Rfam assigns this 127-nucleotide RNA sequence from Notechis scutatus to the family "Small nucleolar RNA SNORD22". The match comes from Rfam's covariance-model search (104 bits). The family's consensus secondary structure was predicted with PFOLD. By type it is a C/D-box small nucleolar RNA. The family has 49 seed sequences and 1,081 matches in Rfam 15.1. Taxonomically the source falls in Notechis (Eukaryota, Lepidosauria, Colubroidea, Hydrophiinae).
RNA sequence: UCCCAGUGAUGAAAAACUAUCACGUCUUACCGUCUGUCUGGUGCCAGAAUCUGCAAAGGUUGAACCCACUGGUGCUAGCAGAUGGAAAAGAGGAUAAUUGGCUUCGGAAGGAGCUGUCUGACGGGAC
Number, nucleotide and partner (000 for none) at each position: 001u126002c125003c124004c123005a000006g000007u000008g000009a000010u000011g000012a000013a000014a000015a000016a000017c000018u000019a000020u000021c000022a000023c000024g000025u000026c000027u000028u000029a000030c000031c000032g000033u000034c000035u000036g000037u000038c000039u000040g000041g000042u000043g000044c000045c000046a000047g000048a000049a000050u000051c000052u000053g000054c000055a000056a000057a000058g000059g000060u000061u000062g000063a000064a000065c000066c000067c000068a000069c000070u000071g000072g000073u000074g000075c000076u000077a000078g000079c000080a000081g000082a000083u000084g000085g000086a000087a000088a000089a000090g000091a000092g000093g000094a000095u000096a000097a000098u000099u000100g000101g000102c000103u000104u000105c000106g000107g000108a000109a000110g000111g000112a000113g000114c000115u000116g000117u000118c000119u000120g000121a000122c000123g004124g003125g002126a001127c000